About this RNA
Shown here is a 117-nucleotide RNA from Microcebus murinus, a member of the family "Y RNA". Taxonomically the source falls in Microcebus (Eukaryota, Metazoa, Sarcopterygii, Boreoeutheria). Rfam describes the family as follows. Y RNAs are components of the Ro ribonucleoprotein particle (Ro RNP), in association with Ro60 and La proteins. The family's RNA type in Rfam is non-coding RNA gene. For this family Rfam cites "Conserved features of Y RNAs: a comparison of experimentally derived secondary structures" (Teunissen et al., Nucleic Acids Res, 2000). The match comes from Rfam's covariance-model search (49 bits).
RNA sequence: UGCUGGUCCAAGGCCUAAAGGUAGUGAGUUAUCUCAGUUGAUUGUUCACAGUCAUUAACAGAUCAAACUUUGUUCUACUCUUCCCCACUUCUCACUACUGCAUUUGACUAGUCUUUA
Numbered sequence: 001u002g003c004u005g006g007u008c009c010a011a012g013g014c015c016u017a018a019a020g021g022u023a024g025u026g027a028g029u030u031a032u033c034u035c036a037g038u039u040g041a042u043u044g045u046u047c048a049c050a051g052u053c054a055u056u057a058a059c060a061g062a063u064c065a066a067a068c069u070u071u072g073u074u075c076u077a078c079u080c081u082u083c084c085c086c087a088c089u090u091c092u093c094a095c096u097a098c099u100g101c102a103u104u105u106g107a108c109u110a111g112u113c114u115u116u117a
Stems, first nucleotide, its partner, number of pairs: 002112007010105002021101002023096006036079003040075002